A member of the RNA family "Bacteroidetes FopS (family of paralogous sRNAs)" from Porphyromonas sp. COT-239 OH1446, 76 nucleotides long. The family's consensus secondary structure is taken from published work. From the family's description: The RNA-binding protein RbpB and BTncRNA_FopS sRNA are involved in the post-transcription regulation of polysaccharide utilisation loci (PUL). FopS sRNAs function as post-transcriptional repressors by binding to the vicinity of the start codon of the first mRNA of target PUL polycistrons, typically corresponding to the cognate SusC homolog, impeding translation of the respective glycan transporter. Rfam links the family to the GO term sRNA-mediated gene silencing.

Nucleotides: 076
Stems, first nucleotide, its partner, number of pairs: 044061007
Number, partner (000 for none) and nucleotide at each position: 001000g002000u003000g004000u005000u006000u007000u008000u009000c010000a011000u012000g013000g014000u015000a016000u017000u018000a019000g020000a021000u022000u023000u024000u025000a026000a027000g028000g029000u030000u031000a032000a033000c034000g035000a036000a037000a038000a039000a040000g041000a042000u043000u044061g045060g046059u047058c048057g049056u050055c051000g052000g053000g054000a055050g056049a057048c058047g059046a060045c061044c062000a063000u064000c065000u066000u067000u068000u069000g070000u071000u072000u073000u074000u075000a076000g